RNA sequence: UGCUUUAUCACCUUUCUCUUCCCGGUUCUUCCUGGAAUCAGGAAAAACUGGGUUGAGAGGGCAGGAAAAAAAAAUC
Number, nucleotide and partner (000 for none) at each position: 001u000002g000003c000004u000005u000006u000007a000008u000009c000010a000011c000012c000013u000014u059015u058016c057017u056018c055019u000020u000021c052022c051023c050024g049025g048026u000027u000028c000029u044030u043031c042032c041033u040034g039035g000036a000037a000038u000039c034040a033041g032042g031043a030044a029045a000046a000047a000048c025049u024050g023051g022052g021053u000054u000055g018056a017057g016058a015059g014060g000061g000062c000063a000064g000065g000066a000067a000068a000069a000070a000071a000072a000073a000074a000075u000076c000
This 76-nucleotide RNA from Microcebus murinus belongs to the Rfam family "mir-320 microRNA precursor family". Rfam links the family to the GO terms positive regulation of stem cell proliferation, cellular response to glucose stimulus and miRNA-mediated post-transcriptional gene silencing. NCBI's taxonomy places the organism under Eukaryota, Bilateria, Euteleostomi, Cheirogaleidae, Microcebus.